[Rfam]
RNA sequence: AAAGCCCUGUAAGCCCGAAAUCCUGAAAGCCUUAGUUUAGGGUUUAUGGGGCUUUGGGCUUAAUUUAGGGUUUAUGGGGCUUU
Numbered sequence: 001a002a003a004g005c006c007c008u009g010u011a012a013g014c015c016c017g018a019a020a021u022c023c024u025g026a027a028a029g030c031c032u033u034a035g036u037u038u039a040g041g042g043u044u045u046a047u048g049g050g051g052c053u054u055u056g057g058g059c060u061u062a063a064u065u066u067a068g069g070g071u072u073u074a075u076g077g078g079g080c081u082u083u
Base pairs, nucleotide, nucleotide: 001083002082003081004080005079006078007077008076009075010074011073012072013071014070015069016068021058022057023056025054026053
Description:
Shown here is an 83-nucleotide RNA sequence from Symbiodinium necroappetens, a member of the family "DUF3800-VIII RNA". It scores 40 bits against the family's covariance model. The base pairs follow the family's consensus structure, which is taken from published work. Bacteroidetes, Cyanobacteria, Firmicutes, Planctomycetes (1 example), Proteobacteria, Tenericutes (1 example).